[Rfam]
Overview: Shown here is a 72-nucleotide RNA sequence from Rodentolepis nana, a member of the family "HDV ribozyme from F. prausnitzii".
RNA sequence: GGGGUGCAUGAUCGACUUACCUCCACGUGGUGCACCCUGGGAAACGUAUGCCCAUACGGCAAAAAAGUCUAU
Numbered sequence: 001g002g003g004g005u006g007c008a009u010g011a012u013c014g015a016c017u018u019a020c021c022u023c024c025a026c027g028u029g030g031u032g033c034a035c036c037c038u039g040g041g042a043a044a045c046g047u048a049u050g051c052c053c054a055u056a057c058g059g060c061a062a063a064a065a066a067g068u069c070u071a072u
Base pairs, nucleotide, nucleotide: 001038002037003036004035005034006033007032019031020030021029045058046057047056048055049054
The match comes from Rfam's covariance-model search (45 bits). The family has 48 seed sequences and 3,803 matches in Rfam 15.1. Gene Ontology term of the family: catalytic activity.